The family of this 75-nucleotide RNA from Elaeis guineensis is "tRNA".
The family's consensus secondary structure is taken from published work.
By type it is a transfer RNA.
Taxonomically the source falls in Elaeis (Eukaryota, Embryophyta, Tracheophyta, commelinids).
Transfer RNA (tRNA) molecules are approximately 80 nucleotides in length.

RNA sequence: UCCAUUGUCGUCUAGUCCGGUUUAGGAUAUCUGGUUUUCACUCAGGCGACUUGGGUUCAAAACCCGGCAAUGGAA
Dot-bracket structure: (((((((..((((...........)))).(((((.......)))))....(((((.......)))))))))))).